[Rfam]
RNA: Glycine riboswitch aptamer
RNA sequence: CACAAUUCUGUUGGAGAGAGGCGGCGCAGGCCAUCUGCACCGCCCACCGAAGGGGCAAGAGGCCGGUGCCAUGCACCAGCGCCUUGAAUCUCUCAGGUAAAGCGGACAGCAGGGUUCCC
Numbered sequence: 001c002a003c004a005a006u007u008c009u010g011u012u013g014g015a016g017a018g019a020g021g022c023g024g025c026g027c028a029g030g031c032c033a034u035c036u037g038c039a040c041c042g043c044c045c046a047c048c049g050a051a052g053g054g055g056c057a058a059g060a061g062g063c064c065g066g067u068g069c070c071a072u073g074c075a076c077c078a079g080c081g082c083c084u085u086g087a088a089u090c091u092c093u094c095a096g097g098u099a100a101a102g103c104g105g106a107c108a109g110c111a112g113g114g115u116u117c118c119c
Base pairs, nucleotide, nucleotide: 006114007113008112009111010110011109012108013107020044021043022042023041046098047097048096049094050093053092054091055090059085060084061083062082063081